[Rfam]
RNA sequence: ACAUUCAGACGCAUUUGCUGACCUUCAACCUUCUAGUUCUUUUCAGUUUAAUCUCUGAAACGUCACUACGGUGACAUUCUAUGAUUAUACUUAUUUUUGGACCUCCGUCGGUGGCCGCUGGGCUUGCUCAUGUCACUGACGACCGUGUCGCCAGUAUUGCACUGCCUCUGGCUGACGCGAACUACUU
Number, nucleotide and partner (000 for none) at each position: 001a000002c000003a000004u000005u000006c000007a024008g023009a000010c000011g018012c017013a000014u000015u000016u000017g012018c011019u000020g000021a000022c000023c008024u007025u000026c000027a000028a000029c000030c000031u000032u000033c000034u000035a000036g000037u000038u000039c000040u000041u060042u059043u058044c057045a056046g055047u000048u000049u000050a000051a000052u000053c000054u000055c046056u045057g044058a043059a042060a041061c000062g075063u074064c073065a072066c071067u000068a000069c000070g000071g066072u065073g064074a063075c062076a000077u000078u000079c000080u000081a000082u000083g000084a000085u000086u000087a000088u000089a000090c000091u000092u000093a000094u000095u000096u000097u000098u000099g000100g000101a000102c000103c000104u000105c000106c000107g140108u139109c138110g137111g136112u135113g134114g133115c000116c000117g000118c000119u130120g129121g128122g127123c000124u000125u000126g000127c122128u121129c120130a119131u000132g000133u114134c113135a112136c111137u110138g109139a108140c107141g000142a000143c000144c179145g178146u177147g176148u175149c000150g172151c171152c170153a169154g168155u000156a000157u000158u000159g000160c000161a000162c000163u000164g000165c000166c000167u000168c154169u153170g152171g151172c150173u000174g000175a148176c147177g146178c145179g144180a000181a000182c000183u000184a000185c000186u000187u000
U2 spliceosomal RNA: a 187-nucleotide RNA sequence from Zymoseptoria tritici.
It is one of the family's seed sequences.
About the family: U2 is a small nuclear RNA (snRNA) component of the spliceosome (involved in pre-mRNA splicing). Complementary binding between U2 snRNA (in an area lying towards the 5' end but 3' to hairpin I) and the branchpoint sequence (BPS) of the intron results the bulging out of an unpaired adenosine, on the BPS, which initiates a nucleophilic attack at the intronic 5' splice site, thus starting the first of two transesterification reactions that mediate splicing.
Its family is annotated with mRNA branch site recognition, pre-mRNA branch point binding and U2 snRNP in the Gene Ontology.
The family has 208 seed sequences and 71,512 matches in Rfam 15.1.
The family is grouped with related families in Rfam's "U2 clan".